[Rfam]
Nucleotides: 093
Base pairs, nucleotide, nucleotide: 012037013036017032018031019030020029021028022027040087041086042085043084045083046082047081048078049077050076055072056071057070058069059068060067061066
Number, partner (000 for none) and nucleotide at each position: 001000u002000a003000u004000g005000a006000a007000a008000c009000a010000g011000g012037g013036c014000a015000a016000a017032g018031u019030u020029g021028u022027c023000g024000a025000a026000a027022g028021g029020c030019a031018a032017c033000g034000a035000c036013g037012c038000a039000a040087a041086g042085c043084c044000a045083c046082g047081g048078g049077u050076c051000u052000a053000a054000a055072g056071c057070a058069u059068c060067g061066c062000a063000g064000a065000u066061g067060c068059g069058g070057u071056g072055u073000u074000a075000u076050g077049a078048u079000g080000g081047c082046u083045g084043g085042g086041c087040u088000a089000c090000c091000a092000u093000a
A member of the RNA family "c-di-GMP-I riboswitch aptamer" from Acetivibrio saccincola, 93 nucleotides long. NCBI's taxonomy places the organism under Bacteria, Bacillota, Acetivibrionales, Acetivibrionaceae, Acetivibrio. The match comes from Rfam's covariance-model search (75 bits).